[Rfam]
RNA sequence: UGCAGUUCUCAGGUGAUGCAUCCCAGAAUCUGGCUCCCUCCUCUCUGGUUUCAGGGUGCACCACCCAAGAACUGCC
Numbered sequence: 001u002g003c004a005g006u007u008c009u010c011a012g013g014u015g016a017u018g019c020a021u022c023c024c025a026g027a028a029u030c031u032g033g034c035u036c037c038c039u040c041c042u043c044u045c046u047g048g049u050u051u052c053a054g055g056g057u058g059c060a061c062c063a064c065c066c067a068a069g070a071a072c073u074g075c076c
Stems, first nucleotide, its partner, number of pairs: 002075002005072005012065004017060001019058005026051005032045002
mir-9223 microRNA precursor family: a 76-nucleotide sequence from Myotis myotis. Its family is annotated with miRNA-mediated post-transcriptional gene silencing and RISC complex in the Gene Ontology.